[Rfam]
RNA sequence: CCCUUUGUAGCUCAGUUGGAUUAGAGCAUCGGACUGUAACUGCAAAACACACACCUCAUCCGGGGGCCCCCGGUUCGAUUCCGGGCGAAGGGA
Dot-bracket structure: (((((((..((((..........)))).(((((.........................))))).....(((((.......)))))))))))).